[Rfam]
RNA sequence: CAUUUUUCUGAUCAUCUGAAGAUCAGCUAUUCGAAGAGAAAGAUCAGCCAAGUCCUUUGGACCUGAUCAACAAUACAGGAGCUACUGAUUUCAGCGACUUUGGCUUCUCUCUCUCCAAAAUGAUGAAUUAUACAAGUUAUAUCUUAGCUUUUCAGCUUUGCGUGAUU
Numbered sequence: 001c002a003u004u005u006u007u008c009u010g011a012u013c014a015u016c017u018g019a020a021g022a023u024c025a026g027c028u029a030u031u032c033g034a035a036g037a038g039a040a041a042g043a044u045c046a047g048c049c050a051a052g053u054c055c056u057u058u059g060g061a062c063c064u065g066a067u068c069a070a071c072a073a074u075a076c077a078g079g080a081g082c083u084a085c086u087g088a089u090u091u092c093a094g095c096g097a098c099u100u101u102g103g104c105u106u107c108u109c110u111c112u113c114u115c116c117a118a119a120a121u122g123a124u125g126a127a128u129u130a131u132a133c134a135a136g137u138u139a140u141a142u143c144u145u146a147g148c149u150u151u152u153c154a155g156c157u158u159u160g161c162g163u164g165a166u167u
Stems, first nucleotide, its partner, number of pairs: 009069006015118001018115002020112003025105005033098001036095001041091007051083003056079004119167003123163003129141004146157004